[Rfam]
RNA: ylbH leader
Organism: Paenibacillus catalpae
RNA sequence: AAAAAAAAUCGGACGCUCAUUUCUGAGCGUCCUUUCAUGGGAGAGGAGAAACCGGACGAAGAGCUUAUGGGGAAACGUAAGUCUUCUCCGCGG
Numbered sequence: 001a002a003a004a005a006a007a008a009u010c011g012g013a014c015g016c017u018c019a020u021u022u023c024u025g026a027g028c029g030u031c032c033u034u035u036c037a038u039g040g041g042a043g044a045g046g047a048g049a050a051a052c053c054g055g056a057c058g059a060a061g062a063g064c065u066u067a068u069g070g071g072g073a074a075a076c077g078u079a080a081g082u083c084u085u086c087u088c089c090g091c092g093g
Stems, first nucleotide, its partner, number of pairs: 011032009033041003053090004058086004063082005